Rfam assigns this 131-nucleotide RNA sequence from Flavobacterium sp. 316 to the family "Bacteroidete tryptophan peptide leader RNA". It scores 73 bits against the family's covariance model.
[Rfam]
RNA sequence: GUGCCUUAAUUAAAAAAUAAAUGAUACCGUUUUUAAACAAUACUUGGUGGUGGAACAACUUACGUCAAACGUCGUGAGCAAAUCCUGCUAUAGUAUAAUUUAAAAAAUAUAAUACAUAUAAAAGGCUUGUC
Numbered sequence: 001g002u003g004c005c006u007u008a009a010u011u012a013a014a015a016a017a018u019a020a021a022u023g024a025u026a027c028c029g030u031u032u033u034u035a036a037a038c039a040a041u042a043c044u045u046g047g048u049g050g051u052g053g054a055a056c057a058a059c060u061u062a063c064g065u066c067a068a069a070c071g072u073c074g075u076g077a078g079c080a081a082a083u084c085c086u087g088c089u090a091u092a093g094u095a096u097a098a099u100u101u102a103a104a105a106a107a108u109a110u111a112a113u114a115c116a117u118a119u120a121a122a123a124g125g126c127u128u129g130u131c
Base pairs, nucleotide, nucleotide: 036101037100040096041095042094043093044092046089047088049086050085052083059078060077061076062072063071064070